[Rfam]
RNA: Archaeal signal recognition particle RNA
RNA sequence: UGGCGAGCUAGUCCGGGUGAUUCGGCGUCACCUGUAAUCCGAAAUCGUCGGCAUGCGGAGGACGAAGCCCGUGGAAGGCGUUUUCUGACGCAUGAAGGCCUUGCUUUCUCUACGUUGAAGAUCCGUCCUGCUGGGUUAGCGGUGGUAAAUCGCCGUGCUGGAGAGCACGUCGACUGCCUUGAUUGCGGGGACCGGCACAGGCCCGGAAGGGAGCAUGCUAACCGUGGACAACUGACGCUUGCAGGGGCACGGGUUGGAGGAAAGGGGCAAGACAACCUAUCAUGUGCGGUAACGACGACCUAAGGCGCGCUCGCUA
Numbered sequence: 001u002g003g004c005g006a007g008c009u010a011g012u013c014c015g016g017g018u019g020a021u022u023c024g025g026c027g028u029c030a031c032c033u034g035u036a037a038u039c040c041g042a043a044a045u046c047g048u049c050g051g052c053a054u055g056c057g058g059a060g061g062a063c064g065a066a067g068c069c070c071g072u073g074g075a076a077g078g079c080g081u082u083u084u085c086u087g088a089c090g091c092a093u094g095a096a097g098g099c100c101u102u103g104c105u106u107u108c109u110c111u112a113c114g115u116u117g118a119a120g121a122u123c124c125g126u127c128c129u130g131c132u133g134g135g136u137u138a139g140c141g142g143u144g145g146u147a148a149a150u151c152g153c154c155g156u157g158c159u160g161g162a163g164a165g166c167a168c169g170u171c172g173a174c175u176g177c178c179u180u181g182a183u184u185g186c187g188g189g190g191a192c193c194g195g196c197a198c199a200g201g202c203c204c205g206g207a208a209g210g211g212a213g214c215a216u217g218c219u220a221a222c223c224g225u226g227g228a229c230a231a232c233u234g235a236c237g238c239u240u241g242c243a244g245g246g247g248c249a250c251g252g253g254u255u256g257g258a259g260g261a262a263a264g265g266g267g268c269a270a271g272a273c274a275a276c277c278u279a280u281c282a283u284g285u286g287c288g289g290u291a292a293c294g295a296c297g298a299c300c301u302a303a304g305g306c307g308c309g310c311u312c313g314c315u316a
Stems, first nucleotide, its partner, number of pairs: 001316008011063004015033007038059004043054001067306003073300002077296001079294003083289002089286007096278003100271006107265003111261001113259001115257001120255007127245005133239002135236005141229001142180001144178004150173003154169006183227006194219004202211003